This 165-nucleotide part of an RNA from Paraglomus brasilianum belongs to the Rfam family "Eukaryotic small subunit ribosomal RNA". A reference for the family is Yusupov et al. (2001), "Crystal structure of the ribosome at 5.5 A resolution", Science. Pairs were carried over by alignment from the consensus structure, which is taken from published work.

RNA sequence: CCGCCCGUCGCUACUACCGAUUGAAUGGCUUAGUGAGACUUUCGGAUGUGUUUGGAGCCGCUGGCAACAGUGACACCUUGCGCAGAAGUUAUUCAAACUUGGUCAUUUAGAGGAAGUAAAAGUCGUAACAAGGUUUCCGUAGGUGAACCUGCGGAAGGAUCAUUA
Numbered sequence: 001c002c003g004c005c006c007g008u009c010g011c012u013a014c015u016a017c018c019g020a021u022u023g024a025a026u027g028g029c030u031u032a033g034u035g036a037g038a039c040u041u042u043c044g045g046a047u048g049u050g051u052u053u054g055g056a057g058c059c060g061c062u063g064g065c066a067a068c069a070g071u072g073a074c075a076c077c078u079u080g081c082g083c084a085g086a087a088g089u090u091a092u093u094c095a096a097a098c099u100u101g102g103u104c105a106u107u108u109a110g111a112g113g114a115a116g117u118a119a120a121a122g123u124c125g126u127a128a129c130a131a132g133g134u135u136u137c138c139g140u141a142g143g144u145g146a147a148c149c150u151g152c153g154g155a156a157g158g159a160u161c162a163u164u165a
Stems, first nucleotide, its partner, number of pairs: 001132001003129001006125002009122001012118004017113002021109001023108008032099003037094002040091001043088001047084005054077002057074001059072004134157010